[Rfam]
RNA sequence: CUGCAAUGAUGACUUUCUUAGGACACCUUUGGAUUUAAGAGUGAAAAGAAAACACAGAGUCUGAGCAGC
Numbered sequence: 001c002u003g004c005a006a007u008g009a010u011g012a013c014u015u016u017c018u019u020a021g022g023a024c025a026c027c028u029u030u031g032g033a034u035u036u037a038a039g040a041g042u043g044a045a046a047a048g049a050a051a052a053c054a055c056a057g058a059g060u061c062u063g064a065g066c067a068g069c
Stems, first nucleotide, its partner, number of pairs: 001068004
The family of this 69-nucleotide RNA from Ceyx cyanopectus is "Small nucleolar RNA SNORD58". The source organism's lineage runs through Eukaryota, Theropoda, Aves, Coraciimorphae and Ceyx. For this family Rfam cites "Purified box C/D snoRNPs are able to reproduce site-specific 2'-O-methylation of target RNA in vitro" (Galardi et al., Mol Cell Biol, 2002). It scores 71 bits against the family's covariance model. About the family: snoRNA U58 is found in introns 1, 3 and 6 of the ribosomal protein RPL17 gene in humans. Its family is annotated with RNA processing and nucleolus in the Gene Ontology. By type it is a C/D-box small nucleolar RNA.